[Rfam]
Description: Shown here is a 47-nucleotide RNA from Polerovirus CLDV, a member of the family "Exoribonuclease-resistant RNA (xrRNA) plant-infecting virus (class 3)". Rfam describes the family as follows. Exoribonuclease-resistant RNA (xrRNA) plant-infecting virus (class 3) is a ncRNA that was reported in Plant viruses. It is annotated as a cis-regulatory element. Rfam's curators put it in the seed alignment. Gene Ontology term of the family: viral RNA genome replication.
RNA sequence: AAGGAGCCACACAACAAGUUGCAAGUAGUGGACCUUUAGCCUUGUAA
Number, nucleotide and partner (000 for none) at each position: 001a035002a000003g033004g000005a000006g000007c031008c030009a000010c000011a026012c025013a000014a045015c044016a043017a042018g041019u000020u000021g000022c000023a000024a000025g012026u011027a000028g000029u000030g008031g007032a000033c003034c000035u001036u000037u000038a000039g000040c000041c018042u017043u016044g015045u014046a000047a000